Rfam assigns this 89-nucleotide RNA from Clostridium tyrobutyricum to the family "Glycine riboswitch aptamer". This family represents the bacterial glycine riboswitch. Glycine riboswitches usually consist of two metabolite-binding aptamers domains with similar structures in tandem. The aptamers cooperatively bind glycine to regulate the expression of downstream genes.
[Rfam]
RNA sequence: GGACGAAACUCUGGAGAGACUCUAUUGAGCGCCGAAGGGGAAAGCUUUGUUCCAGCGAAACUCUCAGGUAAAAGGACAGAGAUUUUAUA
Numbered sequence: 001g002g003a004c005g006a007a008a009c010u011c012u013g014g015a016g017a018g019a020c021u022c023u024a025u026u027g028a029g030c031g032c033c034g035a036a037g038g039g040g041a042a043a044g045c046u047u048u049g050u051u052c053c054a055g056c057g058a059a060a061c062u063c064u065c066a067g068g069u070a071a072a073a074g075g076a077c078a079g080a081g082a083u084u085u086u087a088u089a
Stems, first nucleotide, its partner, number of pairs: 006084002009081005020029003031069003034065002038063003044056002